[Rfam]
Rfam assigns this 81-nucleotide sequence from Medicago truncatula to the family "MIR2617 microRNA precursor family".
A search with the family's covariance model found it, with a score of 78 bits.
Lineage of the source: Eukaryota > Streptophyta > Tracheophyta > Euphyllophyta > Medicago.
The base pairs follow the family's consensus structure, which was predicted with RNAalifold.

RNA sequence: AUGUAGCAUGCCCGUUUGGUGCUUAACUCUGAUGAAUAAUUGUUAUUUAAUUACUUUUGGGUAACGGGGUGUUACAGACAA
Numbered sequence: 001a002u003g004u005a006g007c008a009u010g011c012c013c014g015u016u017u018g019g020u021g022c023u024u025a026a027c028u029c030u031g032a033u034g035a036a037u038a039a040u041u042g043u044u045a046u047u048u049a050a051u052u053a054c055u056u057u058u059g060g061g062u063a064a065c066g067g068g069g070u071g072u073u074a075c076a077g078a079c080a081a
Base pairs, nucleotide, nucleotide: 002076003075004074005073006072007071008070009069011068012067013066014065015064016063